[Rfam]
RNA: 6S / SsrS RNA
RNA sequence: CAUCCCCUGCGGUGUUCGCCAAGGUCAUGGAAUCCUUGAACCAAUAUUCUUUGCAUCUGGCUGGUAACCGCAACGUCGCCGUUGUGAGCCUCCUUCACGGAGGCACCUGAAGCGACAGGAAGCUGGCCGCUCUGAACCGCAGGUUCAGGAUGCCGGCCUAGCGGCACAGGCGGGGGACCU
Numbered sequence: 001c002a003u004c005c006c007c008u009g010c011g012g013u014g015u016u017c018g019c020c021a022a023g024g025u026c027a028u029g030g031a032a033u034c035c036u037u038g039a040a041c042c043a044a045u046a047u048u049c050u051u052u053g054c055a056u057c058u059g060g061c062u063g064g065u066a067a068c069c070g071c072a073a074c075g076u077c078g079c080c081g082u083u084g085u086g087a088g089c090c091u092c093c094u095u096c097a098c099g100g101a102g103g104c105a106c107c108u109g110a111a112g113c114g115a116c117a118g119g120a121a122g123c124u125g126g127c128c129g130c131u132c133u134g135a136a137c138c139g140c141a142g143g144u145u146c147a148g149g150a151u152g153c154c155g156g157c158c159u160a161g162c163g164g165c166a167c168a169g170g171c172g173g174g175g176g177a178c179c180u
Stems, first nucleotide, its partner, number of pairs: 003177008012167004017163003032151004037147006059128003063124003068119001075116005084106002089103005
Dot-bracket structure: ..((((((((.((((.(((............((((.((((((................(((.(((..(......(((((....((...(((((.....))))).)).....)))))..)..))).))).............)))))))))).........)))))))..))))))))...